[Rfam]
A member of the RNA family "Small nucleolar SNORD12/SNORD106" from Mesitornis unicolor, 94 nucleotides long. Rfam classes the family as a C/D-box small nucleolar RNA. The family is grouped with related families in Rfam's "SNORD12 clan". For this family Rfam cites "RNomics: an experimental approach that identifies 201 candidates for novel, small, non-messenger RNAs in mouse" (Huttenhofer et al., EMBO J, 2001). Rfam 15.1 lists 2,264 matches to the family in 650 species. The base pairs follow the family's consensus structure, which was predicted with RNAalifold. A search with the family's covariance model found it, with a score of 49 bits.
RNA sequence: GCAUCUGUUGUGAUGACUUCAGACUUUUCCCCAUCAGAUUGGCAAUGCUGCUGCAAACUUCUGUUCUAGCCAGGUUGUCUGAUUCCACAGAUGC
Numbered sequence: 001g002c003a004u005c006u007g008u009u010g011u012g013a014u015g016a017c018u019u020c021a022g023a024c025u026u027u028u029c030c031c032c033a034u035c036a037g038a039u040u041g042g043c044a045a046u047g048c049u050g051c052u053g054c055a056a057a058c059u060u061c062u063g064u065u066c067u068a069g070c071c072a073g074g075u076u077g078u079c080u081g082a083u084u085c086c087a088c089a090g091a092u093g094c
Stems, first nucleotide, its partner, number of pairs: 001094008